[Rfam]
RNA sequence: UUUGCUCUCGAAUAACUGAAUGAGUUAUUGAUCUCUGUUCGGUUCAGACAGGAGCAUAUAGUGACGGUAUCGAACUUGUUGCUCGGAUGGUUUUUUAAUCUUCUGAAUGAAUUAGUUUGCAGUUUUGGAACUUUUUGUUCCUUUACGAAUUUAC
Numbered sequence: 001u002u003u004g005c006u007c008u009c010g011a012a013u014a015a016c017u018g019a020a021u022g023a024g025u026u027a028u029u030g031a032u033c034u035c036u037g038u039u040c041g042g043u044u045c046a047g048a049c050a051g052g053a054g055c056a057u058a059u060a061g062u063g064a065c066g067g068u069a070u071c072g073a074a075c076u077u078g079u080u081g082c083u084c085g086g087a088u089g090g091u092u093u094u095u096u097a098a099u100c101u102u103c104u105g106a107a108u109g110a111a112u113u114a115g116u117u118u119g120c121a122g123u124u125u126u127g128g129a130a131c132u133u134u135u136u137g138u139u140c141c142u143u144u145a146c147g148a149a150u151u152u153a154c
Stems, first nucleotide, its partner, number of pairs: 003056006014044008022035003067146003073117003078112003082109001086103002089100002127141005